[Rfam]
RNA sequence: AUCUUUAUAAUAGUUCGGUUUUUUGGUGAAGUGAGUUUGCGUUUACAAUUAUCUUUACGUGUUAAAGAAAGUUAGUUGUUCGCUUGUGCAUGAUUUCCCGGAGGGGGGUGCAAGCACUGCGCAUUACGCUUUUGUCUUCAAUUU
Numbered sequence: 001a002u003c004u005u006u007a008u009a010a011u012a013g014u015u016c017g018g019u020u021u022u023u024u025g026g027u028g029a030a031g032u033g034a035g036u037u038u039g040c041g042u043u044u045a046c047a048a049u050u051a052u053c054u055u056u057a058c059g060u061g062u063u064a065a066a067g068a069a070a071g072u073u074a075g076u077u078g079u080u081c082g083c084u085u086g087u088g089c090a091u092g093a094u095u096u097c098c099c100g101g102a103g104g105g106g107g108g109u110g111c112a113a114g115c116a117c118u119g120c121g122c123a124u125u126a127c128g129c130u131u132u133u134g135u136c137u138u139c140a141a142u143u144u
Stems, first nucleotide, its partner, number of pairs: 009138002012135001028132006038123005046078006053071004082115008096107004